The family of this 47-nucleotide sequence from Danio rerio is "Histone 3' UTR stem-loop".
Rfam links the family to the GO term mRNA 3'-end processing by stem-loop binding and cleavage.
Rfam describes the family as follows. The mRNAs of metazoan histone genes lack a poly-A tail. 3' end processing occurs at a site between a highly conserved stem-loop (modelled by this family) and a purine rich region around 20 nts downstream (the histone downstream element, or HDE).
RNA sequence: CCAAAGGCUCUUUUAAGAGCCACAUCAAUGUGUCUAGAAAAGAUGAU
Numbered sequence: 001c002c003a004a005a006g007g008c009u010c011u012u013u014u015a016a017g018a019g020c021c022a023c024a025u026c027a028a029u030g031u032g033u034c035u036a037g038a039a040a041a042g043a044u045g046a047u
Stems, first nucleotide, its partner, number of pairs: 006021006